[Rfam]
RNA sequence: UGUCCCUGAUCUGGUGAGUGGCACUGAGCUGGUGGUGCCUGCUCAUCAGCCAGGGGCAAACCAACCCUAUUAUCCCAGCCUGACUUCCGGUCUACACCUGUGCCCGGUCUAUUCCUUGGGCCCACAG
Number, nucleotide and partner (000 for none) at each position: 001u058002g057003u056004c055005c054006c053007u052008g051009a000010u000011c049012u048013g047014g046015u000016g044017a043018g042019u000020g039021g038022c037023a036024c035025u034026g000027a000028g000029c000030u000031g000032g000033u000034g025035g024036u023037g022038c021039c020040u000041g000042c018043u017044c016045a000046u014047c013048a012049g011050c000051c008052a007053g006054g005055g004056g003057c002058a001059a000060a000061c000062c000063a000064a000065c000066c000067c000068u000069a000070u119071u118072a117073u000074c000075c000076c000077a000078g000079c000080c000081u000082g115083a000084c000085u000086u000087c000088c000089g110090g109091u000092c107093u106094a000095c000096a000097c102098c000099u000100g000101u000102g097103c000104c000105c000106g093107g092108u000109c090110u089111a000112u000113u000114c000115c082116u000117u072118g071119g070120g000121c000122c000123c000124a000125c000126a000127g000